[Rfam]
RNA sequence: GAGCGGAGGGCGCAUAUGAACGAAGUUCAUAUUCAGGAUGCGCCCGACAACCUGCCGCCGAACAACGUGAGGGGGCAAUACCCAUG
Number, nucleotide and partner (000 for none) at each position: 001g000002a000003g000004c000005g000006g000007a000008g045009g044010g043011c042012g041013c040014a000015u031016a030017u029018g028019a027020a026021c000022g000023a000024a000025g000026u020027u019028c018029a017030u016031a015032u000033u000034c000035a000036g000037g000038a000039u000040g013041c012042g011043c010044c009045c008046g000047a000048c000049a000050a000051c000052c000053u000054g076055c075056c074057g000058c072059c071060g000061a000062a068063c067064a000065a000066c000067g063068u062069g000070a000071g059072g058073g000074g056075g055076c054077a000078a000079u000080a000081c000082c000083c000084a000085u000086g000
Background:
The record is an 86-nucleotide RNA, which matches "GA-cis RNA" in Rfam. The sequence is in the family's curated seed alignment. It is annotated as a small RNA.